Annotation
A member of the RNA family "small nucleolar RNA snoR137" from Durio zibethinus, 150 nucleotides long.
RNA sequence: GUUGCUUCUUACUGGUGAACGCUCUCAGAUUUAACAGUGAGGGAUGUUCAUGUUUCCGAAGCAUAAAUUAAUUGAACUUUCAGCCAGUUUUAAACAGCGCUGUGCAUUUUACCUAUACUUGCACUGUUCUACCUGUCUCCUGGUAUAUUU
Numbered sequence: 001g002u003u004g005c006u007u008c009u010u011a012c013u014g015g016u017g018a019a020c021g022c023u024c025u026c027a028g029a030u031u032u033a034a035c036a037g038u039g040a041g042g043g044a045u046g047u048u049c050a051u052g053u054u055u056c057c058g059a060a061g062c063a064u065a066a067a068u069u070a071a072u073u074g075a076a077c078u079u080u081c082a083g084c085c086a087g088u089u090u091u092a093a094a095c096a097g098c099g100c101u102g103u104g105c106a107u108u109u110u111a112c113c114u115a116u117a118c119u120u121g122c123a124c125u126g127u128u129c130u131a132c133c134u135g136u137c138u139c140c141u142g143g144u145a146u147a148u149u150u
Stems, first nucleotide, its partner, number of pairs: 003063006016050005022043004083144005096130002100126001102124003
Notes
Taxonomically the source falls in Durio (Eukaryota, Spermatophyta, Pentapetalae, Helicteroideae). Rfam links the family to the GO terms RNA processing and nucleolus. The family's RNA type in Rfam is H/ACA-box small nucleolar RNA. For this family Rfam cites "Mining small RNA sequencing data: a new approach to identify small nucleolar RNAs in Arabidopsis" (Chen and Wu, Nucleic Acids Res, 2009).